[Rfam]
RNA sequence: UGGUCUGUUGCUGGAUGCGCUUGAUGGUUGCCCCUUUGGGGCCCACCACCAGUCCCACCACUCGGUAAGGAAC
Number, nucleotide and partner (000 for none) at each position: 001u000002g000003g000004u069005c000006u067007g066008u065009u064010g063011c000012u060013g059014g058015a000016u000017g055018c000019g053020c052021u051022u000023g049024a000025u048026g047027g046028u045029u000030g043031c000032c041033c040034c039035u000036u000037u000038g000039g034040g033041g032042c000043c030044c000045a028046c027047c026048a025049c023050c000051a021052g020053u019054c000055c017056c000057a000058c014059c013060a012061c000062u000063c010064g009065g008066u007067a006068a000069g004070g000071a000072a000073c000